Shown here is a 119-nucleotide sequence from Chrysochloris asiatica, a member of the family "Small nucleolar RNA SNORA26". For this family Rfam cites "RNomics: an experimental approach that identifies 201 candidates for novel, small, non-messenger RNAs in mouse" (Huttenhofer et al., EMBO J, 2001).
RNA sequence: GUGCCCUUUACAGUUGCUGCAAUACUGUAUAUGGUUAACACAGAAGAGUAAACUAAGUCUCCAUAAAAGCCAGAAUAGAGAUCACAGAACUCCUCUGCAUCCUGUCUGGAGUCACAGCU
Numbered sequence: 001g002u003g004c005c006c007u008u009u010a011c012a013g014u015u016g017c018u019g020c021a022a023u024a025c026u027g028u029a030u031a032u033g034g035u036u037a038a039c040a041c042a043g044a045a046g047a048g049u050a051a052a053c054u055a056a057g058u059c060u061c062c063a064u065a066a067a068a069g070c071c072a073g074a075a076u077a078g079a080g081a082u083c084a085c086a087g088a089a090c091u092c093c094u095c096u097g098c099a100u101c102c103u104g105u106c107u108g109g110a111g112u113c114a115c116a117g118c119u
Stems, first nucleotide, its partner, number of pairs: 002050003007044003013039004018034001057113001059111005071097004078092003082089001

Rfam links the family to the GO terms RNA processing and nucleolus. The snoRNA HBI-6 belong to the H/ACA family of snoRNAs, guiding the pseudouridylation of position U4522 if the 28S rRNA. HBI-6 is the human orthologue of mouse MBI-6 snoRNA. By type it is an H/ACA-box small nucleolar RNA. The match comes from Rfam's covariance-model search (86 bits).